[Rfam]
RNA: FMN riboswitch aptamer (RFN element)
Organism: Shewanella pealeana
RNA sequence: AAUAAUUCUCAGGGCGGGGUGCAACUCCCCACCGGCGGUAAAUUAUGCUGCGUAUAUUAAUCACAGUAUAAAAGCCCGCGAGCGCCUAGUUUACGCUAUUAAAUAUCAAUAGCUGCGAAUAUUAACUAGGGUCAGCAGAUCUGGUAAACAGACCUUAUCAAAGACGCUCGUCAUACGUAAGGUUGUACCUACUCCAGAGCCGACGGUAAUGAGUACUGACUAACCAAGUGAGUACACUGAGUCCGGAUGAAAGAGAAUAUAA
Numbered sequence: 001a002a003u004a005a006u007u008c009u010c011a012g013g014g015c016g017g018g019g020u021g022c023a024a025c026u027c028c029c030c031a032c033c034g035g036c037g038g039u040a041a042a043u044u045a046u047g048c049u050g051c052g053u054a055u056a057u058u059a060a061u062c063a064c065a066g067u068a069u070a071a072a073a074g075c076c077c078g079c080g081a082g083c084g085c086c087u088a089g090u091u092u093a094c095g096c097u098a099u100u101a102a103a104u105a106u107c108a109a110u111a112g113c114u115g116c117g118a119a120u121a122u123u124a125a126c127u128a129g130g131g132u133c134a135g136c137a138g139a140u141c142u143g144g145u146a147a148a149c150a151g152a153c154c155u156u157a158u159c160a161a162a163g164a165c166g167c168u169c170g171u172c173a174u175a176c177g178u179a180a181g182g183u184u185g186u187a188c189c190u191a192c193u194c195c196a197g198a199g200c201c202g203a204c205g206g207u208a209a210u211g212a213g214u215a216c217u218g219a220c221u222a223a224c225c226a227a228g229u230g231a232g233u234a235c236a237c238u239g240a241g242u243c244c245g246g247a248u249g250a251a252a253g254a255g256a257a258u259a260u261a262a
Base pairs, nucleotide, nucleotide: 005258006257007256008255009254010253017029018028019027033202034201035079036078037077038076074200075199082136083135140198141197142196143195144194204245205244206243
Dot-bracket structure: ....((((((......(((.......)))...((((((...................................[[))))..((...................................................))...(((((.................................................)))))]])).(((....................................))).......))))))....